RNA sequence: CUGCAUGUAGCACCCCGGGCUUCUCCGAAACAAUAAUUGUAUGAAGAAGAAAGCCCCAAUGCUCGUGCUAUAUCAGAUCUAUUGCCGUCGAGUGUUGCAGUUCAGCCCUCUGUACCUUUUCAGUGGCCGCUUCUGUGUCAAAUUGACGGCUACACAC
Numbered sequence: 001c002u003g004c005a006u007g008u009a010g011c012a013c014c015c016c017g018g019g020c021u022u023c024u025c026c027g028a029a030a031c032a033a034u035a036a037u038u039g040u041a042u043g044a045a046g047a048a049g050a051a052a053g054c055c056c057c058a059a060u061g062c063u064c065g066u067g068c069u070a071u072a073u074c075a076g077a078u079c080u081a082u083u084g085c086c087g088u089c090g091a092g093u094g095u096u097g098c099a100g101u102u103c104a105g106c107c108c109u110c111u112g113u114a115c116c117u118u119u120u121c122a123g124u125g126g127c128c129g130c131u132u133c134u135g136u137g138u139c140a141a142a143u144u145g146a147c148g149g150c151u152a153c154a155c156a157c
Stems, first nucleotide, its partner, number of pairs: 003068005010062002017056005022050002024047002084150007093140002096137005105127003
The family of this 157-nucleotide RNA from Helianthus annuus is "small nucleolar RNA snoR134". The match comes from Rfam's covariance-model search (99 bits). The base pairs follow the family's consensus structure, which was predicted with RNAalifold. A reference for the family is Chen and Wu (2009), "Mining small RNA sequencing data: a new approach to identify small nucleolar RNAs in Arabidopsis", Nucleic Acids Res.